[Rfam]
This 100-nucleotide RNA from Caenorhabditis bovis belongs to the Rfam family "mir-36 microRNA precursor family".
Its family is annotated with miRNA-mediated post-transcriptional gene silencing and RISC complex in the Gene Ontology.
On this family, see Lim et al., Genes Dev 2003: "The microRNAs of Caenorhabditis elegans".
A search with the family's covariance model found it, with a score of 59 bits.
The family's consensus secondary structure was predicted with WAR.
RNA sequence: CGAAACCCAUCGGAUCGGGCCAUCGCGGGUUUUCGCCGCGGUGAUAAGCAAGACCAGCUGUAUCACCGGGUAAAAAUCCAUGAUGGCCUGAUCCUGAACG
Numbered sequence: 001c002g003a004a005a006c007c008c009a010u011c012g013g014a015u016c017g018g019g020c021c022a023u024c025g026c027g028g029g030u031u032u033u034c035g036c037c038g039c040g041g042u043g044a045u046a047a048g049c050a051a052g053a054c055c056a057g058c059u060g061u062a063u064c065a066c067c068g069g070g071u072a073a074a075a076a077u078c079c080a081u082g083a084u085g086g087c088c089u090g091a092u093c094c095u096g097a098a099c100g
Base pairs, nucleotide, nucleotide: 016090017089018088019087020086021085022084024082025081027079028078029077030076031075032074033073035071036070037069039068041066042065043064044063045062046061